[Rfam]
RNA: mir-544 microRNA precursor family
Organism: Homo sapiens
RNA sequence: AUUACCUAGGGAUCUUGUUAAAAUGCAGAUUCUAGUUCCAUAGUUCUGGGGUGAGGCCUAAGAAUUUUUAUUUCUAACAAGCUCUCAGGUGAUGCUGC
Numbered sequence: 001a002u003u004a005c006c007u008a009g010g011g012a013u014c015u016u017g018u019u020a021a022a023a024u025g026c027a028g029a030u031u032c033u034a035g036u037u038c039c040a041u042a043g044u045u046c047u048g049g050g051g052u053g054a055g056g057c058c059u060a061a062g063a064a065u066u067u068u069u070a071u072u073u074c075u076a077a078c079a080a081g082c083u084c085u086c087a088g089g090u091g092a093u094g095c096u097g098c
Stems, first nucleotide, its partner, number of pairs: 003091003009085003014081007021073003025069001027067003031063003